[Rfam]
RNA: Group II catalytic intron D1-D4-5
Organism: Halalkalibacter suaedae
RNA sequence: CUGAAGGGUUAUAUCGAAGAAUCAAAUGAUGGGGUAACGCCCUGAAAGGUUCUCUCUUAAUCGAUUAGCACUGAAAUUAGUAAGAAUGAUAGUGUUAAGAGCUCGGUGAAAAGGCGUAAGAACUUACCGUAACAGUGAAUUUUAGCUGACGAAAACCUAACCGCGGGGGAGGUGUAAAUCAUGACGCUUGAGUUAAAUGA
Numbered sequence: 001c002u003g004a005a006g007g008g009u010u011a012u013a014u015c016g017a018a019g020a021a022u023c024a025a026a027u028g029a030u031g032g033g034g035u036a037a038c039g040c041c042c043u044g045a046a047a048g049g050u051u052c053u054c055u056c057u058u059a060a061u062c063g064a065u066u067a068g069c070a071c072u073g074a075a076a077u078u079a080g081u082a083a084g085a086a087u088g089a090u091a092g093u094g095u096u097a098a099g100a101g102c103u104c105g106g107u108g109a110a111a112a113g114g115c116g117u118a119a120g121a122a123c124u125u126a127c128c129g130u131a132a133c134a135g136u137g138a139a140u141u142u143u144a145g146c147u148g149a150c151g152a153a154a155a156c157c158u159a160a161c162c163g164c165g166g167g168g169g170a171g172g173u174g175u176a177a178a179u180c181a182u183g184a185c186g187c188u189u190g191a192g193u194u195a196a197a198u199g200a
Stems, first nucleotide, its partner, number of pairs: 018053006031043004054192003061106004065098009076087003113188005122179001124177004128151003134147002155173004161168002
Dot-bracket structure: .................((((((.......((((.....))))....))))))(((....(((((((((((((..(((......)))..)))))))))....))))......(((((....(.(((((((...((..........)).)))...((((..((....)).)))))))).)....))))).)))........